HDV ribozyme from F. prausnitzii: an 84-nucleotide RNA sequence from Argiope bruennichi. Pairs were carried over by alignment from the consensus structure, which is taken from published work.
[Rfam]
RNA sequence: GGGGAACGAGAGUAGCACACCUCCACGUGGUGUUCCCUGGGCAACGGGGCAGUUCUCUGGAACUGCAACGGCUAAGAUGCUACU
Numbered sequence: 001g002g003g004g005a006a007c008g009a010g011a012g013u014a015g016c017a018c019a020c021c022u023c024c025a026c027g028u029g030g031u032g033u034u035c036c037c038u039g040g041g042c043a044a045c046g047g048g049g050c051a052g053u054u055c056u057c058u059g060g061a062a063c064u065g066c067a068a069c070g071g072c073u074a075a076g077a078u079g080c081u082a083c084u
Base pairs, nucleotide, nucleotide: 001038002037003036004035005034006033007032019031020030021029045070046069

For this family Rfam cites "Widespread occurrence of self-cleaving ribozymes" (Webb et al., Science, 2009).